[Rfam]
RNA: Purine riboswitch aptamer
Organism: Bacillus manliponensis
RNA sequence: AUAAUAUAAAGUAUAUUCCUUCAUAUAUCCUCAAAAAUAUGGUUUGAGAGUCUCUACCGGGUUGCCGUAAAUAACCUGACUAUGAAGGCAGUGUAGCUAUAU
Numbered sequence: 001a002u003a004a005u006a007u008a009a010a011g012u013a014u015a016u017u018c019c020u021u022c023a024u025a026u027a028u029c030c031u032c033a034a035a036a037a038u039a040u041g042g043u044u045u046g047a048g049a050g051u052c053u054c055u056a057c058c059g060g061g062u063u064g065c066c067g068u069a070a071a072u073a074a075c076c077u078g079a080c081u082a083u084g085a086a087g088g089c090a091g092u093g094u095a096g097c098u099a100u101a102u
Stems, first nucleotide, its partner, number of pairs: 018088008030048006058078007